[Rfam]
RNA sequence: GGCAGCACGGGAGAGCGACCUGUUGGCUGGCAGUCAAAGCAACCCUUGGCACGAGCGAUUGUCAGGGGUAGCUUUCUGCGCUUUUCAAAAAUCGGAAGAAUUUUGUACCUUUUGAGACGAAGGUUUGUAUACCGAGGAACGUGUUUAAACGGAUACCGCAUCGCUCGAGAAGAACAUCGUUCUUCUCGCGGUUCCGUGGUCCCG
Numbered sequence: 001g002g003c004a005g006c007a008c009g010g011g012a013g014a015g016c017g018a019c020c021u022g023u024u025g026g027c028u029g030g031c032a033g034u035c036a037a038a039g040c041a042a043c044c045c046u047u048g049g050c051a052c053g054a055g056c057g058a059u060u061g062u063c064a065g066g067g068g069u070a071g072c073u074u075u076c077u078g079c080g081c082u083u084u085u086c087a088a089a090a091a092u093c094g095g096a097a098g099a100a101u102u103u104u105g106u107a108c109c110u111u112u113u114g115a116g117a118c119g120a121a122g123g124u125u126u127g128u129a130u131a132c133c134g135a136g137g138a139a140c141g142u143g144u145u146u147a148a149a150c151g152g153a154u155a156c157c158g159c160a161u162c163g164c165u166c167g168a169g170a171a172g173a174a175c176a177u178c179g180u181u182c183u184u185c186u187c188g189c190g191g192u193u194c195c196g197u198g199g200u201c202c203c204g
Base pairs, nucleotide, nucleotide: 003029004028005027006026007023008022009021010020011019030079031078032077033076036073042069043068044067045066046065047064048063049062050061051060149197150196151195152194153193155192156191157190158189159188167187168186169185170184171183172182173181174180
RNA: Cyano-2 RNA